Rfam assigns this 107-nucleotide RNA sequence from Psychrobacillus insolitus to the family "SAM riboswitch aptamer (S box leader)".

RNA sequence: UUCUUAUCAAGAGAGACGGAGGGAUUGGCCCAAAGAUGUCUCAGCAACCAGCCGGUUCUAGGUGUGGUGCUAACUCCAAAAGACUCUGAUAGUCUUGAAGAUAAGAA
Numbered sequence: 001u002u003c004u005u006a007u008c009a010a011g012a013g014a015g016a017c018g019g020a021g022g023g024a025u026u027g028g029c030c031c032a033a034a035g036a037u038g039u040c041u042c043a044g045c046a047a048c049c050a051g052c053c054g055g056u057u058c059u060a061g062g063u064g065u066g067g068u069g070c071u072a073a074c075u076c077c078a079a080a081a082g083a084c085u086c087u088g089a090u091a092g093u094c095u096u097g098a099a100g101a102u103a104a105g106a107a
Stems, first nucleotide, its partner, number of pairs: 001107008013042005021031003025079004043071004048067002051063003075099001080096006